[Rfam]
RNA: Small nucleolar RNA snoR31/Z110/Z27
RNA sequence: AGUAUCAGAGGAUGAAACCUCACAUCAAUCUUAGGACACCUUCUGACACAGUGCUAUUAACCACCUUACACUGUGAAUGAGAAGGCAUUUCUUUCUGAUGACGCU
Dot-bracket structure: (((.(((....................................((................))...................................))).)))